The family of this 94-nucleotide sequence from Salipaludibacillus neizhouensis is "pan motif".
A search with the family's covariance model found it, with a score of 74 bits.
Pairs were carried over by alignment from the consensus structure, which is taken from published work.
[Rfam]
RNA sequence: UGGACAGUAUCCAAUGGAACUGUACCUUAAAUAUCUUUGCAAUGUAGAUUUUAUAAUAGUCUGCCUUGAUCCAAAUACGGACAGGGACAGAGGG
Numbered sequence: 001u002g003g004a005c006a007g008u009a010u011c012c013a014a015u016g017g018a019a020c021u022g023u024a025c026c027u028u029a030a031a032u033a034u035c036u037u038u039g040c041a042a043u044g045u046a047g048a049u050u051u052u053a054u055a056a057u058a059g060u061c062u063g064c065c066u067u068g069a070u071c072c073a074a075a076u077a078c079g080g081a082c083a084g085g086g087a088c089a090g091a092g093g094g
Stems, first nucleotide, its partner, number of pairs: 002026002004023005010018002061090003064086005070081003